A member of the RNA family "mir-5316 microRNA precursor family" from Rhipicephalus microplus, 89 nucleotides long. Pairs were carried over by alignment from the consensus structure, which was predicted with RNAalifold.

[Rfam]
RNA sequence: GUACCACUUGUAGGCUCACGAAAAUGUUCUGGUUGGCAUUGAUUGAAUAAUUUGUCACUAGGGCCUUUUCGACGAGAUUUCCGUGGUUU
Numbered sequence: 001g002u003a004c005c006a007c008u009u010g011u012a013g014g015c016u017c018a019c020g021a022a023a024a025u026g027u028u029c030u031g032g033u034u035g036g037c038a039u040u041g042a043u044u045g046a047a048u049a050a051u052u053u054g055u056c057a058c059u060a061g062g063g064c065c066u067u068u069u070c071g072a073c074g075a076g077a078u079u080u081c082c083g084u085g086g087u088u089u
Base pairs, nucleotide, nucleotide: 003087004086005085006084007083012079013078015076016075017074019071020070021069022068023067024066026064027063028062029061030060031059032058033057035056036055037054038053
Dot-bracket structure: ..(((((....((.(((.((((((.((((((((.((((..............)))))))))))).))))))..))).))...)))))..